[Rfam]
RNA: small nucleolar RNA snoR135
Organism: Chenopodium quinoa
RNA sequence: AUAGCAGGAAUUGUGUGUAUCGACGUAGUGCAUUAUAUGCAUUAAUUAGUCGAAAGAUUUUCCUGCAAUAUCUAAUUUCAGGGGAGGAUGGGCAGUUGUGUUUCAUCCUUUUGUUGAUUCUUUUCAACAAUCAUCUUCCCUAUAUUU
Numbered sequence: 001a002u003a004g005c006a007g008g009a010a011u012u013g014u015g016u017g018u019a020u021c022g023a024c025g026u027a028g029u030g031c032a033u034u035a036u037a038u039g040c041a042u043u044a045a046u047u048a049g050u051c052g053a054a055a056g057a058u059u060u061u062c063c064u065g066c067a068a069u070a071u072c073u074a075a076u077u078u079c080a081g082g083g084g085a086g087g088a089u090g091g092g093c094a095g096u097u098g099u100g101u102u103u104c105a106u107c108c109u110u111u112u113g114u115u116g117a118u119u120c121u122u123u124u125c126a127a128c129a130a131u132c133a134u135c136u137u138c139c140c141u142a143u144a145u146u147u
Stems, first nucleotide, its partner, number of pairs: 004066007015042006081141011095128004